Potassium channel RNA editing signal: a 114-nucleotide RNA sequence from Betta splendens. The match comes from Rfam's covariance-model search (100 bits). Lineage of the source: Eukaryota > Vertebrata > Osteoglossocephalai > Percomorphaceae > Betta.
[Rfam]
RNA sequence: GUCGGAUACGGCGACAUGCAUCCGGUGACCAUCGGUGGCAAAAUAGUUGGGUCGCUGUGCGCAAUAGCAGGCGUGCUGACAAUUGCCUUACCCGUGCCGGUGAUUGUGUCCAAU
Numbered sequence: 001g002u003c004g005g006a007u008a009c010g011g012c013g014a015c016a017u018g019c020a021u022c023c024g025g026u027g028a029c030c031a032u033c034g035g036u037g038g039c040a041a042a043a044u045a046g047u048u049g050g051g052u053c054g055c056u057g058u059g060c061g062c063a064a065u066a067g068c069a070g071g072c073g074u075g076c077u078g079a080c081a082a083u084u085g086c087c088u089u090a091c092c093c094g095u096g097c098c099g100g101u102g103a104u105u106g107u108g109u110c111c112a113a114u
Stems, first nucleotide, its partner, number of pairs: 001114002004111002007108005014101002018097004037077004050062001